[Rfam]
RNA: SAM-I/IV (S-adenosyl methionine) riboswitch aptamer
Organism: Allosphingosinicella ginsenosidimutans
RNA sequence: UUCGUGCAUCAAGAGUGGGCUUUCGGGCCCACGCCAACCUGCCCUCCCGGGCAAGGUGGCGGUUCCCCAGGCGGGGGACGAUGCGGCCGGACCGGCAAUCAUACGGGGUCCU
Numbered sequence: 001u002u003c004g005u006g007c008a009u010c011a012a013g014a015g016u017g018g019g020c021u022u023u024c025g026g027g028c029c030c031a032c033g034c035c036a037a038c039c040u041g042c043c044c045u046c047c048c049g050g051g052c053a054a055g056g057u058g059g060c061g062g063u064u065c066c067c068c069a070g071g072c073g074g075g076g077g078a079c080g081a082u083g084c085g086g087c088c089g090g091a092c093c094g095g096c097a098a099u100c101a102u103a104c105g106g107g108g109u110c111c112u
Base pairs, nucleotide, nucleotide: 006084007083008082009081010080015032016031017030018029019028020027033060034059035058038056039055040054041052042051043050045108046107047106048105049104086096087095088094089093